[Rfam]
RNA: Bacterial small signal recognition particle RNA
Organism: Marihabitans asiaticum
RNA sequence: GGUGGCACCCCACGUGGUGGUACCUCACCGAACUCCCCCAGGGCGGGAACGCAGCAAGGGUAGGCGAGCUCUUCCAGGUACGUGGGGUGUCUUCGCG
Numbered sequence: 001g002g003u004g005g006c007a008c009c010c011c012a013c014g015u016g017g018u019g020g021u022a023c024c025u026c027a028c029c030g031a032a033c034u035c036c037c038c039c040a041g042g043g044c045g046g047g048a049a050c051g052c053a054g055c056a057a058g059g060g061u062a063g064g065c066g067a068g069c070u071c072u073u074c075c076a077g078g079u080a081c082g083u084g085g086g087g088u089g090u091c092u093u094c095g096c097g
Stems, first nucleotide, its partner, number of pairs: 004091011015078001018076003022072001024068003028064002035060003043052003